[Rfam]
RNA sequence: CAUGCACCCAAACCCAAAGUUCAUAUCUGGCAGUGGUAUGAGUUUGUCUGGCGUGCACACAGGAAGCGGAGCCUUGUCGCCUUUCUGUGGCGCCACAGUGCCUCAGAAAGUGAAUUCAAGGGUCUACAUUC
Numbered sequence: 001c002a003u004g005c006a007c008c009c010a011a012a013c014c015c016a017a018a019g020u021u022c023a024u025a026u027c028u029g030g031c032a033g034u035g036g037u038a039u040g041a042g043u044u045u046g047u048c049u050g051g052c053g054u055g056c057a058c059a060c061a062g063g064a065a066g067c068g069g070a071g072c073c074u075u076g077u078c079g080c081c082u083u084u085c086u087g088u089g090g091c092g093c094c095a096c097a098g099u100g101c102c103u104c105a106g107a108a109a110g111u112g113a114a115u116u117c118a119a120g121g122g123u124c125u126a127c128a129u130u131c
Stems, first nucleotide, its partner, number of pairs: 003057005009051001019043009068124001070123001072122004081110007089102003

Small nucleolar RNA SNORA68: a 131-nucleotide sequence from Mola mola. It scores 78 bits against the family's covariance model. The base pairs follow the family's consensus structure, which was predicted with PFOLD. A reference for the family is Ganot et al. (1997), "The family of box ACA small nucleolar RNAs is defined by an evolutionarily conserved secondary structure and ubiquitous sequence elements essential for RNA accumulation", Genes Dev. NCBI's taxonomy places the organism under Eukaryota, Eumetazoa, Bilateria, Teleostomi, Mola.